A member of the RNA family "Small nucleolar RNA SNORD83" from Elysia chlorotica, 72 nucleotides long. It is annotated as a C/D-box small nucleolar RNA. The match comes from Rfam's covariance-model search (40 bits).
RNA sequence: ACCAAAUGAUGGUUUUCUUAUAUCUGAAGCCUUGGCUAUGGAUGACUCUUCAUCACCCACUUACUGAUGGUU
Dot-bracket structure: ((((.......................(((....)))..............................)))).
For this family Rfam cites "Characterisation of the U83 and U84 small nucleolar RNAs: two novel 2'-O-ribose methylation guide RNAs that lack complementarities to ribosomal RNAs" (Jady and Kiss, Nucleic Acids Res, 2000).